Rfam assigns this 218-nucleotide RNA from Miscanthus lutarioriparius to the family "MIR6217 microRNA precursor family". A search with the family's covariance model found it, with a score of 143 bits. The family's consensus secondary structure was predicted with RNAalifold. Taxonomically the source falls in Miscanthus (Eukaryota, Tracheophyta, Petrosaviidae, Andropogonodae).
RNA sequence: UGGCUAUAAAAUAACUUAUUCUAUAGUCACUUUGAGUUACGAUAAUUACUAUGUUAAUUUAUGAGAUUAUAGUAACUCCUUACUAAGUGGUUUACUAUAACAUUAUGGUAAAUAUCUUUAUAUGUCAUAGUAACCCAUUUAUCAUAAAUAUGUAUUGAUAUUAUCAUAAAUUAUUAUAUAAAAUUAUCGUAAAUGGAGGUGACUAUAGAGAAGGGCCU
Numbered sequence: 001u002g003g004c005u006a007u008a009a010a011a012u013a014a015c016u017u018a019u020u021c022u023a024u025a026g027u028c029a030c031u032u033u034g035a036g037u038u039a040c041g042a043u044a045a046u047u048a049c050u051a052u053g054u055u056a057a058u059u060u061a062u063g064a065g066a067u068u069a070u071a072g073u074a075a076c077u078c079c080u081u082a083c084u085a086a087g088u089g090g091u092u093u094a095c096u097a098u099a100a101c102a103u104u105a106u107g108g109u110a111a112a113u114a115u116c117u118u119u120a121u122a123u124g125u126c127a128u129a130g131u132a133a134c135c136c137a138u139u140u141a142u143c144a145u146a147a148a149u150a151u152g153u154a155u156u157g158a159u160a161u162u163a164u165c166a167u168a169a170a171u172u173a174u175u176a177u178a179u180a181a182a183a184u185u186a187u188c189g190u191a192a193a194u195g196g197a198g199g200u201g202a203c204u205a206u207a208g209a210g211a212a213g214g215g216c217c218u
Stems, first nucleotide, its partner, number of pairs: 011218001015214003019210015037192011050178004055173008065165003069161003074155001080147003087142004092137001093132006100125004107117002